[Rfam]
RNA sequence: GAGAUGCGAUGAAGUAGAAGGUUGCUGGCCAUCAGGUAAUUUUUACAGAGUAUGUCUGUAUCUUAGAAUCGGGCGACGA
Number, nucleotide and partner (000 for none) at each position: 001g000002a000003g000004a000005u000006g000007c000008g000009a000010u000011g000012a000013a000014g046015u045016a044017g000018a043019a042020g041021g040022u000023u000024g000025c035026u034027g033028g032029c000030c000031a000032u028033c027034a026035g025036g000037u000038a000039a000040u021041u020042u019043u018044u016045a015046c014047a000048g000049a000050g000051u000052a000053u078054g077055u076056c075057u000058g000059u000060a000061u000062c073063u072064u071065a000066g000067a000068a000069u000070c000071g064072g063073g062074c000075g056076a055077c054078g053079a000
RNA: S10-Clostridia ribosomal protein leader
Organism: Tepidibacter thalassicus